[Rfam]
RNA sequence: GUACAACGCCUAGGAGGACCACCAUGGGAUUUACGCAAUCGCUCAAUGCCCUCGUGAUCUGUGCAGCGUUCAUGUUUGUCGGCGCACUGCUUUUCAUCUAGCUGUGUAAAGCGCCGCCACGAUGGGAAAAGUUCAAUGACGGGAGCGUUUCGGCGCUCCCGUUUU
Numbered sequence: 001g002u003a004c005a006a007c008g009c010c011u012a013g014g015a016g017g018a019c020c021a022c023c024a025u026g027g028g029a030u031u032u033a034c035g036c037a038a039u040c041g042c043u044c045a046a047u048g049c050c051c052u053c054g055u056g057a058u059c060u061g062u063g064c065a066g067c068g069u070u071c072a073u074g075u076u077u078g079u080c081g082g083c084g085c086a087c088u089g090c091u092u093u094u095c096a097u098c099u100a101g102c103u104g105u106g107u108a109a110a111g112c113g114c115c116g117c118c119a120c121g122a123u124g125g126g127a128a129a130a131g132u133u134c135a136a137u138g139a140c141g142g143g144a145g146c147g148u149u150u151c152g153g154c155g156c157u158c159c160c161g162u163u164u165u
Base pairs, nucleotide, nucleotide: 016050017049019048026042028040029039136165138163139162140161141160142159143158144157145156146155147154148153
About this RNA
A member of the RNA family "Rhizobiales sRNA Atu_C9" from Parahoeflea phototrophica, 165 nucleotides long. A search with the family's covariance model found it, with a score of 50 bits. Taxonomically the source falls in Parahoeflea phototrophica (Bacteria, Pseudomonadati, Pseudomonadota, Hyphomicrobiales).